The family of this 117-nucleotide sequence from Pseudomonas cremoricolorata is "Pseudomon-groES RNA". Pairs were carried over by alignment from the consensus structure, which is taken from published work. The family's RNA type in Rfam is cis-regulatory element.
RNA sequence: CUAUGAGACACCGCAAGGUUCCUGGCGCGUUUCGCCAGACACGACACUGAUGGCCUGCCCAGGCGUGCCAUCUCCGGCCAGGCCGGAAUGCCUCAACCCGCCGGUGUCGACACCGGC
Numbered sequence: 001c002u003a004u005g006a007g008a009c010a011c012c013g014c015a016a017g018g019u020u021c022c023u024g025g026c027g028c029g030u031u032u033c034g035c036c037a038g039a040c041a042c043g044a045c046a047c048u049g050a051u052g053g054c055c056u057g058c059c060c061a062g063g064c065g066u067g068c069c070a071u072c073u074c075c076g077g078c079c080a081g082g083c084c085g086g087a088a089u090g091c092c093u094c095a096a097c098c099c100g101c102c103g104g105u106g107u108c109g110a111c112a113c114c115g116g117c
Stems, first nucleotide, its partner, number of pairs: 010019003022038005049072006056065002074086004100117006